SAH (S-adenosyl-L-homocysteine) riboswitch aptamer: a 115-nucleotide RNA sequence from Candidatus Vallotiella hemipterorum. Rfam links the family to the GO terms S-adenosylhomocysteine metabolic process and regulation of gene expression. A reference for the family is Wang et al. (2008), "Riboswitches that sense S-adenosylhomocysteine and activate genes involved in coenzyme recycling", Mol Cell. The organism belongs to Candidatus Vallotiella, within Bacteria.

RNA sequence: UAUUUCGAGGGGCGUUGCGACAGCUUAUAGCCAACAGGCUCGAAAUUCUUCGAUCGGCAGUUUCGUUGCACUUAUUUAACGCCUGCGGUCGUGGCUAUAACGGCGCUCACGUCCU
Numbered sequence: 001u002a003u004u005u006c007g008a009g010g011g012g013c014g015u016u017g018c019g020a021c022a023g024c025u026u027a028u029a030g031c032c033a034a035c036a037g038g039c040u041c042g043a044a045a046u047u048c049u050u051c052g053a054u055c056g057g058c059a060g061u062u063u064c065g066u067u068g069c070a071c072u073u074a075u076u077u078a079a080c081g082c083c084u085g086c087g088g089u090c091g092u093g094g095c096u097a098u099a100a101c102g103g104c105g106c107u108c109a110c111g112u113c114c115u
Base pairs, nucleotide, nucleotide: 002046003045004044005043006042007041008040023031024030025029
Dot-bracket structure: .(((((((..............(((...)))........))))))).....................................................................